Rfam assigns this 57-nucleotide RNA sequence to the family "DUF3800-VI RNA". By type it is a cis-regulatory element.

RNA sequence: CGGUUGGGAGGGCUGCGUUUGCGCGGUUCGUUGAGACCCGAGGGUCUCACUCGGCUG
Numbered sequence: 001c002g003g004u005u006g007g008g009a010g011g012g013c014u015g016c017g018u019u020u021g022c023g024c025g026g027u028u029c030g031u032u033g034a035g036a037c038c039c040g041a042g043g044g045u046c047u048c049a050c051u052c053g054g055c056u057g
Stems, first nucleotide, its partner, number of pairs: 001057008010029007032049007